About this RNA
The record is a 350-nucleotide sequence from Sulfitobacter guttiformis, which matches "Alphaproteobacteria transfer-messenger RNA" in Rfam. It scores 281 bits against the family's covariance model. About the family: Bacterial tmRNA, also known as 10Sa RNA or SsrA, is named for its dual tRNA and mRNA-like properties. Its role is to liberate the mRNA from a stalled ribosome. To accomplish this part of the tmRNA is used as a reading frame that ends in a translation stop signal. The broken mRNA is replaced in the ribosome by the tmRNA and translation of the tmRNA leads to addition of a proteolysis tag to the incomplete protein enabling recognition by a protease. Recently a number of permuted tmRNA genes have been found encoded in two parts. tmRNAs have been identified in eubacteria and some chloroplasts but are absent from archaeal and eukaryote nuclear genomes.
RNA sequence: CCUCUUGAACUCUGCGCGGCUUGGCACUACCUUACUAAUGUCCUUCGGGACUAUGGAUAUAAACGCGCUCGUAAUAAGCGGUUCGGACCCGGGGGCGGUACCCGGCGACUCCACCAAACAUCCGUCAUUUGCGGAUCAUGGGGUCGAAAUAGGAUCGACGAACGUCUAAAGGGGUAUUGCUUUAUCUCGGCUGACUGCCACCGUUAUCGGCGUAAAAUGUACAAUUGCAAAUGACAAUCGUGCUCCAAUGGCGAUGGCCGCGUAAGCGACCGGAACUAUUGAAACCUAAGUCCUUGCGUUUAGCGACGUAAGGCGGGGCCCGCCGGAGCCUGGCAACAGAAUCCGGCACU
Numbered sequence: 001c002c003u004c005u006u007g008a009a010c011u012c013u014g015c016g017c018g019g020c021u022u023g024g025c026a027c028u029a030c031c032u033u034a035c036u037a038a039u040g041u042c043c044u045u046c047g048g049g050a051c052u053a054u055g056g057a058u059a060u061a062a063a064c065g066c067g068c069u070c071g072u073a074a075u076a077a078g079c080g081g082u083u084c085g086g087a088c089c090c091g092g093g094g095g096c097g098g099u100a101c102c103c104g105g106c107g108a109c110u111c112c113a114c115c116a117a118a119c120a121u122c123c124g125u126c127a128u129u130u131g132c133g134g135a136u137c138a139u140g141g142g143g144u145c146g147a148a149a150u151a152g153g154a155u156c157g158a159c160g161a162a163c164g165u166c167u168a169a170a171g172g173g174g175u176a177u178u179g180c181u182u183u184a185u186c187u188c189g190g191c192u193g194a195c196u197g198c199c200a201c202c203g204u205u206a207u208c209g210g211c212g213u214a215a216a217a218u219g220u221a222c223a224a225u226u227g228c229a230a231a232u233g234a235c236a237a238u239c240g241u242g243c244u245c246c247a248a249u250g251g252c253g254a255u256g257g258c259c260g261c262g263u264a265a266g267c268g269a270c271c272g273g274a275a276c277u278a279u280u281g282a283a284a285c286c287u288a289a290g291u292c293c294u295u296g297c298g299u300u301u302a303g304c305g306a307c308g309u310a311a312g313g314c315g316g317g318g319c320c321c322g323c324c325g326g327a328g329c330c331u332g333g334c335a336a337c338a339g340a341a342u343c344c345g346g347c348a349c350u
Stems, first nucleotide, its partner, number of pairs: 040051004055187005065180002067175004079164002083161003089105005106146007188203003194213002197211003316331004322347006
Dot-bracket structure: .......................................((((....))))...(((((.....((((((........((..(((...(((((.......)))))(((((((...........................)))))))............))).)).......))))...))..)))))[[[...((.(((.]]].....)))))......................................................................................................[[[[..((((((]]]]..........))))))...